[Rfam]
RNA sequence: UUAUCCGCGAGGAUCGGUCUGGAGGAAGCCGCUAGCAAAACUGCGAGUUGAUGAACAAGAACAUCAUAUGAGGCGUAGGCUGAAGGCGAGUUGGCACAAGACGACGAAGCCAUGUGAUCUAACGGCCACCGUAAAUGAUGCAACAGUGCAGUGAAAGUUUAUGUU
Numbered sequence: 001u002u003a004u005c006c007g008c009g010a011g012g013a014u015c016g017g018u019c020u021g022g023a024g025g026a027a028g029c030c031g032c033u034a035g036c037a038a039a040a041c042u043g044c045g046a047g048u049u050g051a052u053g054a055a056c057a058a059g060a061a062c063a064u065c066a067u068a069u070g071a072g073g074c075g076u077a078g079g080c081u082g083a084a085g086g087c088g089a090g091u092u093g094g095c096a097c098a099a100g101a102c103g104a105c106g107a108a109g110c111c112a113u114g115u116g117a118u119c120u121a122a123c124g125g126c127c128a129c130c131g132u133a134a135a136u137g138a139u140g141c142a143a144c145a146g147u148g149c150a151g152u153g154a155a156a157g158u159u160u161a162u163g164u165u
Base pairs, nucleotide, nucleotide: 001016003014004013005012006011028165030163031162035158036157040152041151042150043149044148045147047144048143049142050141062140063139064138065137066136067135073132074131075130078127079126080125081124082123085111086110087109090105091104092103093102